The family of this 97-nucleotide RNA from Anoxybacter fermentans is "Glycine riboswitch aptamer".
[Rfam]
RNA sequence: AUGAAGGAUGCAGGAGAUUUCCUUUUAUAAGGAAAGCCGAAGGAGCAAGCUAUGAAAUCAUAGCGAAACUCUCAGGCACCAGGACUGCAUCUGGACG
Dot-bracket structure: .....((((((((.....((((........)))).(((((..(((...((((((....))))))....))))).))).......)))))))).....
A search with the family's covariance model found it, with a score of 69 bits. The organism belongs to Anoxybacter, within Bacteria.